[Rfam]
RNA sequence: AUAAUGAUACUCCCUUAUAGCCAUAGUCCGAGCGUUCAAAGCGUCGCAGGCAAUGGGUAGGGCUGUGCGAGAACCGCGCAGGGGUGAAACUCCCGUGA
Numbered sequence: 001a002u003a004a005u006g007a008u009a010c011u012c013c014c015u016u017a018u019a020g021c022c023a024u025a026g027u028c029c030g031a032g033c034g035u036u037c038a039a040a041g042c043g044u045c046g047c048a049g050g051c052a053a054u055g056g057g058u059a060g061g062g063c064u065g066u067g068c069g070a071g072a073a074c075c076g077c078g079c080a081g082g083g084g085u086g087a088a089a090c091u092c093c094c095g096u097g098a
Base pairs, nucleotide, nucleotide: 012095013062014061015060016059017058018057063081064080065079067077068076069075082094083093084092
RNA: pemK RNA